[Rfam]
Potassium channel RNA editing signal: a 114-nucleotide sequence from Vombatus ursinus.
The base pairs follow the family's consensus structure, which is taken from published work.
The organism belongs to Vombatus, within Eukaryota.
On this family, see Bhalla et al., Nat Struct Mol Biol 2004: "Control of human potassium channel inactivation by editing of a small mRNA hairpin".
The match comes from Rfam's covariance-model search (94 bits).
Rfam classes the family as a cis-regulatory element.
RNA sequence: CUGGGCUAUGGAGAUAUGUAUCCCAAGACGUGGUCAGGAAUGUUGGUGGGGGCGCUGUGUGCAUUGGCUGGGGUACUUACCAUCGCCAUGCCCGUCCCUGUCAUUGUCAACAAC
Numbered sequence: 001c002u003g004g005g006c007u008a009u010g011g012a013g014a015u016a017u018g019u020a021u022c023c024c025a026a027g028a029c030g031u032g033g034u035c036a037g038g039a040a041u042g043u044u045g046g047u048g049g050g051g052g053c054g055c056u057g058u059g060u061g062c063a064u065u066g067g068c069u070g071g072g073g074u075a076c077u078u079a080c081c082a083u084c085g086c087c088a089u090g091c092c093c094g095u096c097c098c099u100g101u102c103a104u105u106g107u108c109a110a111c112a113a114c
Stems, first nucleotide, its partner, number of pairs: 002113001004111001008107004013102004018097001020095002037077002040074001050062001